[Rfam]
Nucleotides: 298
Stems, first nucleotide, its partner, number of pairs: 006031003012026003036082001038080002111150003115145001119139003123135003157176002161173001164171002182225002185221002233273006242260002245257001283298001286295003
Number, partner (000 for none) and nucleotide at each position: 001000u002000g003000g004000c005000g006031c007030c008029c009000a010000a011000u012026g013025u014024g015000g016000g017000g018000c019000u020000c021000g022000a023000g024014u025013a026012c027000g028000a029008g030007g031006g032000a033000u034000c035000c036082c037000c038080g039079u040000g041000a042000a043000g044000g045000a046000c047000g048000u049000u050000g051000u052000u053000c054000g055000a056000g057000u058000a059000g060000u061000u062000a063000a064000g065000a066000a067000a068000u069000u070000u071000c072000u073000g074000g075000c076000c077000a078000g079039a080038c081000a082036g083000c084000u085000g086000c087000a088000g089000a090000g091000a092000a093000g094000g095000c096000a097000g098000c099000c100000c101000a102000g103000g104000a105000c106000u107000u108000a109000a110000a111150g112149a113148g114000a115145c116000a117000g118000u119139c120138g121137c122000a123135u124134g125133g126000g127000a128000g129000c130000c131000u132000g133125c134124u135123a136000c137121g138120c139119g140000a141000c142000u143000c144000a145115g146000g147000a148113c149112u150111u151000g152000g153000u154000a155000a156000g157176u158175g159000a160000a161173c162000a163000g164171c165170g166000a167000c168000a169000a170165u171164g172000g173161g174000a175158c176157a177000g178000g179000a180000a181000u182225u183224g184000a185221g186220u187000c188000a189000g190000c191000a192000u193000g194000a195000a196000a197000a198000g199000u200000u201000u202000g203000u204000a205000a206000u207000a208000g209000g210000u211000c212000u213000u214000a215000a216000a217000g218000a219000a220186g221185c222000u223000c224183u225182a226000a227000a228000g229000a230000c231000a232000c233273g234272a235271g236270g237269a238268g239000c240000a241000a242260a243259g244000g245257u246000a247000a248000a249000g250000a251000a252000a253000a254000a255000g256000c257245a258000a259243u260242u261000a262000a263000u264000a265000g266000a267000u268238u269237u270236c271235u272234u273233u274000a275000a276000g277000u278000u279000u280000c281000u282000c283298a284000a285000u286295g287294a288293c289000c290000u291000u292000u293288g294287u295286c296000c297000g298283u